[Rfam]
RNA sequence: CAAUGCAAUAGAGGUCGCGAUCGCCACCAACGCUAUGGAGUGUGUAUUCACUUUGAAGUAGCCGAGAGGACAUUCGCCGAAGUAAGUUUUUGAAAUACAUCAUCAACUUGCUGGGCCAGACGGGAAUACCGGCUGGACUGUCUUAGACUUGUUGUCUAAGGAGCGCUAUACGAUUU
Number, nucleotide and partner (000 for none) at each position: 001c000002a000003a000004u000005g000006c000007a000008a169009u168010a167011g166012a000013g000014g000015u000016c000017g077018c076019g075020a074021u000022c000023g071024c000025c069026a000027c000028c000029a000030a000031c000032g062033c061034u060035a059036u058037g000038g000039a000040g000041u000042g000043u000044g000045u000046a000047u000048u000049c000050a000051c000052u000053u000054u000055g000056a000057a000058g036059u035060a034061g033062c032063c000064g000065a000066g000067a000068g000069g025070a000071c023072a000073u000074u020075c019076g018077c017078c000079g000080a000081a112082g111083u110084a109085a108086g107087u106088u105089u000090u000091u102092g101093a000094a000095a000096u000097a000098c000099a000100u000101c092102a091103u000104c000105a088106a087107c086108u085109u084110g083111c082112u081113g139114g138115g000116c136117c135118a134119g133120a000121c131122g130123g129124g000125a000126a000127u000128a000129c123130c122131g121132g000133c119134u118135g117136g116137a000138c114139u113140g000141u161142c160143u159144u158145a157146g156147a155148c000149u000150u000151g000152u000153u000154g000155u147156c146157u145158a144159a143160g142161g141162a000163g000164c000165g000166c011167u010168a009169u008170a000171c000172g000173a000174u000175u000176u000
RNA: Lysine riboswitch aptamer